About this RNA: The record is a 75-nucleotide RNA from Alligator sinensis, which matches "Mammalian CPEB3 ribozyme" in Rfam.

RNA sequence: UGGAGAGUUCAAGGCCAUAGCAGAAGCACUCGCAGUGUGGCCAUGUCAGAUUCCCAGGAAUCUGUGAAUUCUACU
Numbered sequence: 001u002g003g004a005g006a007g008u009u010c011a012a013g014g015c016c017a018u019a020g021c022a023g024a025a026g027c028a029c030u031c032g033c034a035g036u037g038u039g040g041c042c043a044u045g046u047c048a049g050a051u052u053c054c055c056a057g058g059a060a061u062c063u064g065u066g067a068a069u070u071c072u073a074c075u
Base pairs, nucleotide, nucleotide: 013042014041015040016039019075020074022072023071024070025069026038027037028036047064048063049062050061051060052059053058
The organism belongs to Alligator, within Eukaryota.